This 135-nucleotide RNA sequence from Dorcoceras hygrometricum belongs to the Rfam family "small nucleolar RNA snoR137". Gene Ontology terms of the family: nucleolus and RNA processing. Pairs were carried over by alignment from the consensus structure, which was predicted with RNAalifold. The literature on the family includes a 2009 paper in Nucleic Acids Res by Chen and Wu, "Mining small RNA sequencing data: a new approach to identify small nucleolar RNAs in Arabidopsis". Lineage of the source: Eukaryota > eudicotyledons > Gunneridae > Loxocarpinae > Dorcoceras.
RNA sequence: GUUGCUUCCUCUUGGGAACUCUCUUAGUGAAUAGAUAGGAGAUGUUCAUGUUUCCGAAGCAUAUAGUAAUUGCAGGUUUAAACAGCAUGCUGUGCUCUUUUUGUUUCAUCAUGUUACCUGUCUCCUGCUACAUUU
Numbered sequence: 001g002u003u004g005c006u007u008c009c010u011c012u013u014g015g016g017a018a019c020u021c022u023c024u025u026a027g028u029g030a031a032u033a034g035a036u037a038g039g040a041g042a043u044g045u046u047c048a049u050g051u052u053u054c055c056g057a058a059g060c061a062u063a064u065a066g067u068a069a070u071u072g073c074a075g076g077u078u079u080a081a082a083c084a085g086c087a088u089g090c091u092g093u094g095c096u097c098u099u100u101u102u103g104u105u106u107c108a109u110c111a112u113g114u115u116a117c118c119u120g121u122c123u124c125c126u127g128c129u130a131c132a133u134u135u
Stems, first nucleotide, its partner, number of pairs: 003061006016047004020042005072128005084115003088111002091108002